[Rfam]
RNA sequence: GCACGGGGCCGUGACUGGCGCAUCGAGGUGGACCACCACCGGGGAGCGGCCCGCAGUCCACCGCCGUGCGCCUGGGCGAGAAGU
Numbered sequence: 001g002c003a004c005g006g007g008g009c010c011g012u013g014a015c016u017g018g019c020g021c022a023u024c025g026a027g028g029u030g031g032a033c034c035a036c037c038a039c040c041g042g043g044g045a046g047c048g049g050c051c052c053g054c055a056g057u058c059c060a061c062c063g064c065c066g067u068g069c070g071c072c073u074g075g076g077c078g079a080g081a082a083g084u
Base pairs, nucleotide, nucleotide: 006052007051008050009049010048011047012046015043016042017072018071019070020069021068028039029038030037031036062078063077064076065075
A member of the RNA family "ZMP/ZTP riboswitch aptamer (pfl RNA motif)" from Goekera deserti, 84 nucleotides long. Pairs were carried over by alignment from the consensus structure, which is taken from published work. Gene Ontology terms of the family: regulation of purine nucleotide biosynthetic process and one-carbon metabolic process. Taxonomically the source falls in Goekera (Bacteria, Bacillati, Actinomycetota, Geodermatophilales).